[Rfam]
RNA sequence: UCAUGGUGGUGGCUGGGGGCAACCUCAUGGUGGUGGCUGG
Dot-bracket structure: ((((((..................))))))..........
Numbered sequence: 001u002c003a004u005g006g007u008g009g010u011g012g013c014u015g016g017g018g019g020c021a022a023c024c025u026c027a028u029g030g031u032g033g034u035g036g037c038u039g040g
Stems, first nucleotide, its partner, number of pairs: 001030006